HNH endonuclease-associated RNA and ORF (HEARO) RNA: a 250-nucleotide RNA sequence from Polaromonas naphthalenivorans. On this family, see Weinberg et al., Nature 2009: "Exceptional structured noncoding RNAs revealed by bacterial metagenome analysis". The sequence is in the family's curated seed alignment. Taxonomically the source falls in Polaromonas naphthalenivorans (Bacteria, Betaproteobacteria, Comamonadaceae, Polaromonas). The family has 139 seed sequences and 952 matches in Rfam 15.1. The family's RNA type in Rfam is non-coding RNA gene.

RNA sequence: GUCAACCACCCCACCCUAAAGGAUGGGGCUUGAAAGGUGAAAGCCUUGAAAGCCCAGGUUGACCAGACCCAGAAAGGAAUUUAAAAAACCAAUCUACGUUGCCUACAGGUUAUCGGACCAACGGCAGGAUGCUUCUCCAGUCCUGCCCUCUUGAAGCCGCAUCAGCAGACAAGCUUUGGGUAAGCGCGAAACGGGAUGCGGCAGUUCAUCUAAAGUGAACAGCCGGCAGGCAACAGGGUCGAGGAGAGCG
Numbered sequence: 001g002u003c004a005a006c007c008a009c010c011c012c013a014c015c016c017u018a019a020a021g022g023a024u025g026g027g028g029c030u031u032g033a034a035a036g037g038u039g040a041a042a043g044c045c046u047u048g049a050a051a052g053c054c055c056a057g058g059u060u061g062a063c064c065a066g067a068c069c070c071a072g073a074a075a076g077g078a079a080u081u082u083a084a085a086a087a088a089c090c091a092a093u094c095u096a097c098g099u100u101g102c103c104u105a106c107a108g109g110u111u112a113u114c115g116g117a118c119c120a121a122c123g124g125c126a127g128g129a130u131g132c133u134u135c136u137c138c139a140g141u142c143c144u145g146c147c148c149u150c151u152u153g154a155a156g157c158c159g160c161a162u163c164a165g166c167a168g169a170c171a172a173g174c175u176u177u178g179g180g181u182a183a184g185c186g187c188g189a190a191a192c193g194g195g196a197u198g199c200g201g202c203a204g205u206u207c208a209u210c211u212a213a214a215g216u217g218a219a220c221a222g223c224c225g226g227c228a229g230g231c232a233a234c235a236g237g238g239u240c241g242a243g244g245a246g247a248g249c250g
Stems, first nucleotide, its partner, number of pairs: 001063007010028002012025001015022002029052003066240005071095003098234007106226001108224001123147008133248006156202008173185004